[Rfam]
RNA sequence: AAAGCAGAUUCCGAAAAGCUAAAAAAGAGUAGGAU
Numbered sequence: 001a002a003a004g005c006a007g008a009u010u011c012c013g014a015a016a017a018g019c020u021a022a023a024a025a026a027g028a029g030u031a032g033g034a035u
Base pairs, nucleotide, nucleotide: 003020004019005018010034011033012032
Dot-bracket structure: ..(((....[[[.....)))...........]]].
Rfam assigns this 35-nucleotide sequence to the family "DUF805b RNA". The base pairs follow the family's consensus structure, which is taken from published work. The family's RNA type in Rfam is cis-regulatory element.